[Rfam]
RNA: Small nucleolar RNA SNORA11
Organism: Pteropus vampyrus
RNA sequence: GGGGUGUGCUCAGAGCAGGGGGCCUGAAGAAAUGGCUCCUCUGUUUAUAACACACCCAGCAGGAAUCCGGGGUCAUUGUGACGAGGGGCACCAAACUUGUGGCCUUCCUAUGAACGAACACCCUACAUGU
Numbered sequence: 001g002g003g004g005u006g007u008g009c010u011c012a013g014a015g016c017a018g019g020g021g022g023c024c025u026g027a028a029g030a031a032a033u034g035g036c037u038c039c040u041c042u043g044u045u046u047a048u049a050a051c052a053c054a055c056c057c058a059g060c061a062g063g064a065a066u067c068c069g070g071g072g073u074c075a076u077u078g079u080g081a082c083g084a085g086g087g088g089c090a091c092c093a094a095a096c097u098u099g100u101g102g103c104c105u106u107c108c109u110a111u112g113a114a115c116g117a118a119c120a121c122c123c124u125a126c127a128u129g130u
Stems, first nucleotide, its partner, number of pairs: 002057007013046009022036003070123004077116003082112002085105003089101003093097001